[Rfam]
The record is a 128-nucleotide sequence from Chinchilla lanigera, which matches "U4 spliceosomal RNA" in Rfam. The family's consensus secondary structure is taken from published work. By type it is a spliceosomal small nuclear RNA.

RNA sequence: AGCUUUGCUCAGUGACAGUAUCAUAGCCAGUGCUGUUUAUCCGAGGCGUGAUUAUUGUUAGUUGAAACAAAUUCACAUGUUGAUGGUAAUGACUUUUACACCAUCAUUUAAGUACAAGGCUUUAGUUA
Numbered sequence: 001a002g003c004u005u006u007g008c009u010c011a012g013u014g015a016c017a018g019u020a021u022c023a024u025a026g027c028c029a030g031u032g033c034u035g036u037u038u039a040u041c042c043g044a045g046g047c048g049u050g051a052u053u054a055u056u057g058u059u060a061g062u063u064g065a066a067a068c069a070a071a072u073u074c075a076c077a078u079g080u081u082g083a084u085g086g087u088a089a090u091g092a093c094u095u096u097u098a099c100a101c102c103a104u105c106a107u108u109u110a111a112g113u114a115c116a117a118g119g120c121u122u123u124a125g126u127u128a
Stems, first nucleotide, its partner, number of pairs: 020052005026047003035041001077104003081098003085094003118127003